[Rfam]
Nucleotides: 111
Stems, first nucleotide, its partner, number of pairs: 006105002009102004022094003026090006
Number, partner (000 for none) and nucleotide at each position: 001000u002000g003000u004000a005000c006105g007104g008000a009102c010101c011100g012099g013000g014000c015000c016000c017000c018000u019000c020000u021000g022094g023093c024092g025000c026090g027089g028088c029087a030086u031085c032000g033000u034000g035000a036000c037000a038000a039000c040000c041000g042000g043000u044000u045000c046000a047000c048000c049000u050000c051000c052000c053000c054000c055000c056000g057000a058000c059000c060000c061000c062000g063000g064000u065000u066000g067000c068000c069000a070000u071000g072000g073000c074000c075000u076000g077000a078000a079000c080000a081000g082000g083000c084000a085031g086030a087029u088028g089027c090026c091000a092024c093023g094022u095000g096000a097000u098000g099012u100011c101010g102009g103000a104007c105006c106000g107000u108000a109000u110000c111000g